RNA sequence: CCGCCGCGGGCGAGCCUGUAUAAUAAUAAGAUGUUGAAUUCCUCUUUGACUGGCCAAUAGUGAUAUUGGCCUUUUUUUA
Numbered sequence: 001c002c003g004c005c006g007c008g009g010g011c012g013a014g015c016c017u018g019u020a021u022a023a024u025a026a027u028a029a030g031a032u033g034u035u036g037a038a039u040u041c042c043u044c045u046u047u048g049a050c051u052g053g054c055c056a057a058u059a060g061u062g063a064u065a066u067u068g069g070c071c072u073u074u075u076u077u078u079a
Stems, first nucleotide, its partner, number of pairs: 007018004026032002052071008

Description:
Rfam assigns this 79-nucleotide sequence from Edwardsiella hoshinae to the family "sroB RNA". Lineage of the source: Bacteria > Pseudomonadota > Enterobacterales > Hafniaceae > Edwardsiella. The base pairs follow the family's consensus structure, which was predicted with LocARNA. On this family, see Vogel et al., Nucleic Acids Res 2003: "RNomics in Escherichia coli detects new sRNA species and indicates parallel transcriptional output in bacteria". By type it is a small RNA.